[Rfam]
RNA: Lysine riboswitch aptamer
Organism: Flavonifractor sp. An306
RNA sequence: AUGCAGGAUAGAGGUUGCGGCCAUUCAAGAGUAGCGCGCGGAGGGGACCGGUCCCUAUGAACCGCGGGAAAGGGAACGCCGCCGAAGGGACGCUUUUCCGGAAAAAGCGUUGCCUGGCCGCUCAGUUAAGAGCUGUUCGGCUGUCGCCGCUGCCGCGGCGGAGCGCUGUCUGCUUU
Numbered sequence: 001a002u003g004c005a006g007g008a009u010a011g012a013g014g015u016u017g018c019g020g021c022c023a024u025u026c027a028a029g030a031g032u033a034g035c036g037c038g039c040g041g042a043g044g045g046g047a048c049c050g051g052u053c054c055c056u057a058u059g060a061a062c063c064g065c066g067g068g069a070a071a072g073g074g075a076a077c078g079c080c081g082c083c084g085a086a087g088g089g090a091c092g093c094u095u096u097u098c099c100g101g102a103a104a105a106a107g108c109g110u111u112g113c114c115u116g117g118c119c120g121c122u123c124a125g126u127u128a129a130g131a132g133c134u135g136u137u138c139g140g141c142u143g144u145c146g147c148c149g150c151u152g153c154c155g156c157g158g159c160g161g162a163g164c165g166c167u168g169u170c171u172g173c174u175u176u
Base pairs, nucleotide, nucleotide: 006171007170008169009168010167011166017082018081019080020079021078024076025075026074035066036065037064038063086115087114088113089111090110091109092108093107094106095105096104116142117141118140119139120138123135124134125133126132144161145160146159147158148157149156150155